[Rfam]
RNA sequence: CCCGGGGUUCACACCCCGGGCUAAUUAUAUAUCAUCCCUUCAGGACU
Numbered sequence: 001c002c003c004g005g006g007g008u009u010c011a012c013a014c015c016c017c018g019g020g021c022u023a024a025u026u027a028u029a030u031a032u033c034a035u036c037c038c039u040u041c042a043g044g045a046c047u
Base pairs, nucleotide, nucleotide: 001020002019003018004017005016006015007014008013035045036044037043